[Rfam]
RNA: Bacterial large subunit ribosomal RNA, nucleotides 842 to 1288
RNA sequence: CUCCCCGAAAUGUUUUUAGGAACAGCGUUGCAUAUAGAAGUUUAUUAGAGGUAGAGCUACUGAUUGGGCUAGGGGGCUUCACCGCCUACCAAACCCUGACAAACUCCGAAUGCUAAUAAAUAUCUGCAGCAGUGAGGCUUUGGGCGCUAAGGUCCAGGGCCGAGAGGGAAAUAACCCAGAUUAGCAACUAAGGUCCCUAAUACGUAGUUAAGUUGAUCAAACGAGGUGGGAUUUCUAUAACAGCCAGGAUGUUGGCUUGGAAGCAGCCAUUCAUUUAAAGAGUGCGUAACAGCUCACUGGUCGAGAGAUCCUGCACGGAAAAUAAUCGGGCAUCAAACUACGAACCGAAGUUCUAAAUUUCCGCCUUGUGCGGAAGUGGUAGGGGAGCAUUGAAAUCUGCACUGAAGGUGUAUGGCGACAUAUGCUGGAGCGAUUUCAAAAGAAAAU
Dot-bracket structure: ((((((....(((((....))))).(((((((......((((((((((.....(((....((...(((...((((((......)))).))...)))...))..)).).....))))))))).).)))))).)...((((((((((......))))))))))....(((......)))...((((.(((...(((......(.((((((.............((..((((((((((.......(((((.(((..(((.........)))...)))(...)(...((......)).).)))))...)))))))))).))...................))))))))))...)))))))((((((((.....))))))))....))))))(.(((((((.(((......((((((((....))))))))...))))))))))..).....